[Rfam]
RNA sequence: AAUGAGACUUCCGCGACAGCGGUCCGCCGAUUGUGCGGAAUAUGGAGGUCCGGGCUGAAAAAUAUGCCCGCGACGCCAUAU
Numbered sequence: 001a002a003u004g005a006g007a008c009u010u011c012c013g014c015g016a017c018a019g020c021g022g023u024c025c026g027c028c029g030a031u032u033g034u035g036c037g038g039a040a041u042a043u044g045g046a047g048g049u050c051c052g053g054g055c056u057g058a059a060a061a062a063u064a065u066g067c068c069c070g071c072g073a074c075g076c077c078a079u080a081u
Stems, first nucleotide, its partner, number of pairs: 011022004023039005040081006047074001051070005
Dot-bracket structure: ..........((((....))))(((((.......)))))((((((.(...(((((..........)))))...).))))))

The family of this 81-nucleotide RNA is "dinG RNA". By type it is a small RNA. Pairs were carried over by alignment from the consensus structure, which is taken from published work.